mir-2040 microRNA precursor family: an 83-nucleotide RNA sequence from Oncorhynchus kisutch. Taxonomically the source falls in Oncorhynchus (Eukaryota, Gnathostomata, Neopterygii, Euteleosteomorpha). It scores 59 bits against the family's covariance model. The family has 2 seed sequences and 12 matches in Rfam 15.1.
RNA sequence: AACGCCUGGACCAACUCCUGGACAGUCUGUGGUGCAACGUGCCACGUUGCACCACAGACUGUCCAGGAGUUGGUCCAGGCGUU
Numbered sequence: 001a002a003c004g005c006c007u008g009g010a011c012c013a014a015c016u017c018c019u020g021g022a023c024a025g026u027c028u029g030u031g032g033u034g035c036a037a038c039g040u041g042c043c044a045c046g047u048u049g050c051a052c053c054a055c056a057g058a059c060u061g062u063c064c065a066g067g068a069g070u071u072g073g074u075c076c077a078g079g080c081g082u083u
Stems, first nucleotide, its partner, number of pairs: 001083006010074002013071009023061003027057005033051007